[Rfam]
RNA sequence: AUCUUAUCCAUGAUGUUUAAAAAUAAAUGUCUGAACUUAUGAAUUAAUUGUGAUUCAGAUUUCUAACUGAGAUAAGCA
Number, nucleotide and partner (000 for none) at each position: 001a000002u000003c076004u075005u074006a073007u072008c071009c000010a000011u000012g000013a000014u000015g000016u000017u000018u000019a000020a000021a000022a000023a000024u000025a000026a000027a000028u000029g000030u000031c000032u000033g000034a000035a000036c000037u000038u000039a000040u000041g000042a000043a000044u000045u000046a000047a000048u000049u000050g000051u000052g000053a000054u000055u000056c000057a000058g000059a000060u000061u000062u000063c000064u000065a000066a000067c000068u000069g000070a000071g008072a007073u006074a005075a004076g003077c000078a000
Source information:
A member of the RNA family "Small nucleolar RNA SNORD72" from Xenopus tropicalis, 78 nucleotides long. The literature on the family includes a 2001 paper in EMBO J by Huttenhofer et al., "RNomics: an experimental approach that identifies 201 candidates for novel, small, non-messenger RNAs in mouse". snoRNA HBII-240 belongs to the CD family of snoRNAs. The pairing is the family consensus, mapped onto this sequence. Its family is annotated with RNA processing and nucleolus in the Gene Ontology. Rfam classes the family as a C/D-box small nucleolar RNA. It scores 65 bits against the family's covariance model.